[Rfam]
RNA sequence: CGGUCCUAAGCGAUGGGGUAAGGCCCGUACAAGGGCGUGCGAUCGGAUGGCGUGCGCGUAAAAAACGCAUGUCGUCCCCCUCCUCACGGAGGGCGUCGCACCGACCAGCGAAAGGGAACCAGGUUAAUAUUCCUGGGCCAGGACAGGGGUUGUGGCAAUGGCCCCGUUAAACGGGCCGUGCUGAGCGGCAACGCAAACGAGCCAGGAGACGGCGAUGGGGGUCCCAGGGAGGGUUCUCUUUCCUGCUUAACGGUCUCCCGUAAGGGAACAGCAAGCUGCUUGGCCGCGUCCUCACGGAUUCACCAGCUGCAUGGUGAUGCACGGCGCAAGUUGUGUGUUGCUAUGUGGCUGCCGCGGAAACACAGCACAAUGACCCUGGAAUCGGAUCGCCCGGAGAGAGGGUCAGAUGACCGGCAUAACGCCCCGGCUUCCGGGGCGUCUGGUGCACUCCCACCGUCCCUUGAAAACGUUCUACCUGGCAAGACACUAUUCAAAAUACUCUACACUACUCUACUCUACUCUACUACUUACUGGUGGUGGUGUGUGUGUGUGUGUGUGUGUGUAUUUACGACGUGACCUCCUGCCUGUCCGUA
Numbered sequence: 001c002g003g004u005c006c007u008a009a010g011c012g013a014u015g016g017g018g019u020a021a022g023g024c025c026c027g028u029a030c031a032a033g034g035g036c037g038u039g040c041g042a043u044c045g046g047a048u049g050g051c052g053u054g055c056g057c058g059u060a061a062a063a064a065a066c067g068c069a070u071g072u073c074g075u076c077c078c079c080c081u082c083c084u085c086a087c088g089g090a091g092g093g094c095g096u097c098g099c100a101c102c103g104a105c106c107a108g109c110g111a112a113a114g115g116g117a118a119c120c121a122g123g124u125u126a127a128u129a130u131u132c133c134u135g136g137g138c139c140a141g142g143a144c145a146g147g148g149g150u151u152g153u154g155g156c157a158a159u160g161g162c163c164c165c166g167u168u169a170a171a172c173g174g175g176c177c178g179u180g181c182u183g184a185g186c187g188g189c190a191a192c193g194c195a196a197a198c199g200a201g202c203c204a205g206g207a208g209a210c211g212g213c214g215a216u217g218g219g220g221g222u223c224c225c226a227g228g229g230a231g232g233g234u235u236c237u238c239u240u241u242c243c244u245g246c247u248u249a250a251c252g253g254u255c256u257c258c259c260g261u262a263a264g265g266g267a268a269c270a271g272c273a274a275g276c277u278g279c280u281u282g283g284c285c286g287c288g289u290c291c292u293c294a295c296g297g298a299u300u301c302a303c304c305a306g307c308u309g310c311a312u313g314g315u316g317a318u319g320c321a322c323g324g325c326g327c328a329a330g331u332u333g334u335g336u337g338u339u340g341c342u343a344u345g346u347g348g349c350u351g352c353c354g355c356g357g358a359a360a361c362a363c364a365g366c367a368c369a370a371u372g373a374c375c376c377u378g379g380a381a382u383c384g385g386a387u388c389g390c391c392c393g394g395a396g397a398g399a400g401g402g403u404c405a406g407a408u409g410a411c412c413g414g415c416a417u418a419a420c421g422c423c424c425c426g427g428c429u430u431c432c433g434g435g436g437c438g439u440c441u442g443g444u445g446c447a448c449u450c451c452c453a454c455c456g457u458c459c460c461u462u463g464a465a466a467a468c469g470u471u472c473u474a475c476c477u478g479g480c481a482a483g484a485c486a487c488u489a490u491u492c493a494a495a496a497u498a499c500u501c502u503a504c505a506c507u508a509c510u511c512u513a514c515u516c517u518a519c520u521c522u523a524c525u526a527c528u529u530a531c532u533g534g535u536g537g538u539g540g541u542g543u544g545u546g547u548g549u550g551u552g553u554g555u556g557u558g559u560g561u562g563u564a565u566u567u568a569c570g571a572c573g574u575g576a577c578c579u580c581c582u583g584c585c586u587g588u589c590c591g592u593a
Base pairs, nucleotide, nucleotide: 001591002590003589005115006114010109011108013028014027016026017025018024037101038100039099040098041097042096043095119136120135121134122133123132139587140586141585142584144583145582146581147580148579149577150576151195152194153193154192202479203478204477205476206475211458212457213456214455216453217452218451219450220449221448222447224443225442226441227247228246230244231243232242251413252412253411254410255409420438421437422436423435424434425433426432